Rfam assigns this 200-nucleotide RNA from Medicago truncatula to the family "MIR2619 microRNA precursor family".
Lineage of the source: Eukaryota > Viridiplantae > Streptophyta > Spermatophyta > Medicago.
The base pairs follow the family's consensus structure, which was predicted with RNAalifold.
It scores 182 bits against the family's covariance model.
RNA sequence: AAACAGCCCCCUAUGUAUUGGAUCUUUGUCAGUUUUGACCCACAAGGCCACUUUGACUUAGUCUUCGCUGACGUGGCACCCACAAUGGUCGACACGUGGCAUCUCAUUUAAGGAAUGUGGGUGCCACGUCAGCGAAGACUAAGUCAAAAGUGGCCUUGGGGACCAAAACUACCAAAGAUCUAAUGCAUAUGAGGCUGUUU
Dot-bracket structure: ((.(((((...(((((((((((((((((..(((((((..((.(((.........................((.((((((((.....................................)))))))).))..........................))).))..)))))))..)))))))))))))))))...))))).))